About this RNA:
Rfam assigns this 136-nucleotide RNA sequence from Streptomyces brasiliensis to the family "Group II catalytic intron D1-D4-4". Group II introns are found in rRNA, tRNA and mRNA of organelles in fungi, plants and protists, and also in mRNA in bacteria. The base pairs follow the family's consensus structure. A reference for the family is Bonen and Vogel (2001), "The ins and outs of group II introns", Trends Genet.
RNA sequence: UUGCCGGUGUGAGUCCGGUCCGGGUAGUGGCCAAGCAGCCCGGUAGCUGGUGGCUGACGGUAGGGGAGACCUGGCCGUCGAAGCGUCACGACAAAGUCCCCUUGGGGGGCGAGCAACUGUGCGGUCCGCAGCAUCA
Numbered sequence: 001u002u003g004c005c006g007g008u009g010u011g012a013g014u015c016c017g018g019u020c021c022g023g024g025u026a027g028u029g030g031c032c033a034a035g036c037a038g039c040c041c042g043g044u045a046g047c048u049g050g051u052g053g054c055u056g057a058c059g060g061u062a063g064g065g066g067a068g069a070c071c072u073g074g075c076c077g078u079c080g081a082a083g084c085g086u087c088a089c090g091a092c093a094a095a096g097u098c099c100c101c102u103u104g105g106g107g108g109g110c111g112a113g114c115a116a117c118u119g120u121g122c123g124g125u126c127c128g129c130a131g132c133a134u135c136a
Stems, first nucleotide, its partner, number of pairs: 020043005050089005055080006064071002096110006113129002
Dot-bracket structure: ...................(((((..............)))))......(((((((((((...((....))...))))))....)))))......((((((...))))))..((.............)).......